[Rfam]
RNA sequence: GCCCCUGUCACUGGGGAGUAGCCUUCCUCUGCCCAGGAGGAGAGCGUGUCAACACACUUGGCUUCGGCCAUGGCACGUUCGGCCCAUGCGGGCUUGGCGAGACCAUUGGCGCAUGCGCUGUCCAAGGCCGGGCGGGCGCGUGCGUCAUGGAUUCGUCAACGCCCGGCCAUG
Dot-bracket structure: .........................(((.........))).((((((((((.......((((....))))))))))))))......(...................................................................................)

Shown here is a 171-nucleotide RNA from Chitiniphilus eburneus, a member of the family "Manganese Mn2+ riboswitch aptamer (yybP-ykoY)".
A reference for the family is Argaman et al. (2001), "Novel small RNA-encoding genes in the intergenic regions of Escherichia coli", Curr Biol.
The organism belongs to Chitiniphilus, within Bacteria.
Rfam's curators write: This RNA was originally discovered in E. coli during a large scale screen and was named SraF. The family was later found to exist upstream of related families of protein genes in many bacteria, including the the yybP and ykoK genes in B. subtilis. The specific functions of these proteins are unknown, but this structured RNA element may be involved in their genetic regulation as a riboswitch.
The family has 29 seed sequences and 1,126 matches in Rfam 15.1.
The base pairs follow the family's consensus structure.
It scores 76 bits against the family's covariance model.